The family of this 130-nucleotide RNA sequence from Cavia porcellus is "Small nucleolar RNA SNORA44". Pairs were carried over by alignment from the consensus structure, which was predicted with PFOLD. NCBI's taxonomy places the organism under Eukaryota, Chordata, Boreoeutheria, Caviidae, Cavia. The match comes from Rfam's covariance-model search (144 bits). It is annotated as an H/ACA-box small nucleolar RNA.

RNA sequence: CAGCAUGUUUCCAAGGACUGUGGCUGGUGUAGCCAUGGGAUCUCCAACUGCAUGUGAGAGCAACCUGGAGAGACUUUAACAGCUCAGGUCAACCCAAUACCUGUGGCUGCCACUCACCUUUCCUAUAAGG
Numbered sequence: 001c002a003g004c005a006u007g008u009u010u011c012c013a014a015g016g017a018c019u020g021u022g023g024c025u026g027g028u029g030u031a032g033c034c035a036u037g038g039g040a041u042c043u044c045c046a047a048c049u050g051c052a053u054g055u056g057a058g059a060g061c062a063a064c065c066u067g068g069a070g071a072g073a074c075u076u077u078a079a080c081a082g083c084u085c086a087g088g089u090c091a092a093c094c095c096a097a098u099a100c101c102u103g104u105g106g107c108u109g110c111c112a113c114u115c116a117c118c119u120u121u122c123c124u125a126u127a128a129g130g
Stems, first nucleotide, its partner, number of pairs: 011038002016034001018032005067123006082110002085103004